[Rfam]
RNA sequence: UUAGCUAUUUUAGAUGAGUUUGUAUUCAUGAGUAUCGUGGAUGCAAACAAUGCAAAACGCAAGUUUGUAUCUAUGAUGGCUAAGGGAUUUAAGCAUGACUUUUAAGCCGCAUAGAUGAAAAUCUAUAGUGGCUUUUUAUAUUAUCUUUUUUGCAAGGUAUUCACUGUAGAUUUUCUGUAAAUUUAC
Numbered sequence: 001u002u003a004g005c006u007a008u009u010u011u012a013g014a015u016g017a018g019u020u021u022g023u024a025u026u027c028a029u030g031a032g033u034a035u036c037g038u039g040g041a042u043g044c045a046a047a048c049a050a051u052g053c054a055a056a057a058c059g060c061a062a063g064u065u066u067g068u069a070u071c072u073a074u075g076a077u078g079g080c081u082a083a084g085g086g087a088u089u090u091a092a093g094c095a096u097g098a099c100u101u102u103u104a105a106g107c108c109g110c111a112u113a114g115a116u117g118a119a120a121a122u123c124u125a126u127a128g129u130g131g132c133u134u135u136u137u138a139u140a141u142u143a144u145c146u147u148u149u150u151u152g153c154a155a156g157g158u159a160u161u162c163a164c165u166g167u168a169g170a171u172u173u174u175c176u177g178u179a180a181a182u183u184u185a186c
Stems, first nucleotide, its partner, number of pairs: 001083007011073006018048012053067004089152001091150003095146001100140001105133006112125003155176003159172001